[Rfam]
Rfam assigns this 105-nucleotide RNA sequence from Prunus avium to the family "MIR6274 microRNA precursor family". NCBI's taxonomy places the organism under Eukaryota, Euphyllophyta, Magnoliopsida, Gunneridae, Prunus.
RNA sequence: GGAUAAUACUGUUUUACUAUUUCCAACCAAUAACACAAUGACACUUGGAAAAGUUAUUUCACGUGUCAUUGCGUUAUUGGUUGAAAAUAACAAAAAGUGCUAUUC
Number, nucleotide and partner (000 for none) at each position: 001g000002g104003a103004u102005a101006a000007u000008a000009c000010u000011g000012u095013u094014u093015u092016a000017c000018u089019a088020u087021u000022u085023c000024c083025a082026a081027c080028c079029a078030a077031u076032a075033a074034c073035a000036c071037a070038a069039u068040g067041a066042c065043a064044c063045u000046u061047g060048g059049a058050a057051a000052a000053g000054u000055u000056a000057u050058u049059u048060c047061a046062c000063g044064u043065g042066u041067c040068a039069u038070u037071g036072c000073g034074u033075u032076a031077u030078u029079g028080g027081u026082u025083g024084a000085a022086a000087a020088u019089a018090a000091c000092a015093a014094a013095a012096a000097g000098u000099g000100c000101u005102a004103u003104u002105c000
The family's consensus secondary structure was predicted with RNAalifold.